Shown here is a 131-nucleotide RNA from Acinetobacter larvae, a member of the family "TPP riboswitch aptamer (THI element)". A search with the family's covariance model found it, with a score of 61 bits. Taxonomically the source falls in Acinetobacter (Bacteria, Pseudomonadati, Moraxellales, Moraxellaceae).

[Rfam]
RNA sequence: ACUCGCUUGACGGAGCGCGAGUAAUACCUCGCUGAGAUUGUGUCAGUGCUGAUCUUCAUCAGCACUUAAACAUAAGUACCGUUGAACCUGAUCAGGUUAAGACCUGCGUAGGAAUCAAGCCCUCUCAAAAG
Numbered sequence: 001a002c003u004c005g006c007u008u009g010a011c012g013g014a015g016c017g018c019g020a021g022u023a024a025u026a027c028c029u030c031g032c033u034g035a036g037a038u039u040g041u042g043u044c045a046g047u048g049c050u051g052a053u054c055u056u057c058a059u060c061a062g063c064a065c066u067u068a069a070a071c072a073u074a075a076g077u078a079c080c081g082u083u084g085a086a087c088c089u090g091a092u093c094a095g096g097u098u099a100a101g102a103c104c105u106g107c108g109u110a111g112g113a114a115u116c117a118a119g120c121c122c123u124c125u126c127a128a129a130a131g
Stems, first nucleotide, its partner, number of pairs: 006119005011081003017032005039074005087112004093106004